[Rfam]
RNA sequence: AUAUCAAAUAUAAACAUAACUCAUAUAUCCCCUGAAUAUGGCAGGGAGUAUCUACCGGGAGCCGCAAAUUCCUGACUAUGAGUGAGAAUAGACGUGUA
Numbered sequence: 001a002u003a004u005c006a007a008a009u010a011u012a013a014a015c016a017u018a019a020c021u022c023a024u025a026u027a028u029c030c031c032c033u034g035a036a037u038a039u040g041g042c043a044g045g046g047a048g049u050a051u052c053u054a055c056c057g058g059g060a061g062c063c064g065c066a067a068a069u070u071c072c073u074g075a076c077u078a079u080g081a082g083u084g085a086g087a088a089u090a091g092a093c094g095u096g097u098a
Stems, first nucleotide, its partner, number of pairs: 019083007030046005056074006
Annotation: This 98-nucleotide sequence from Clostridium sp. HMP27 belongs to the Rfam family "Purine riboswitch aptamer". Gene Ontology term of the family: purine nucleobase biosynthetic process. The base pairs follow the family's consensus structure, which is taken from published work.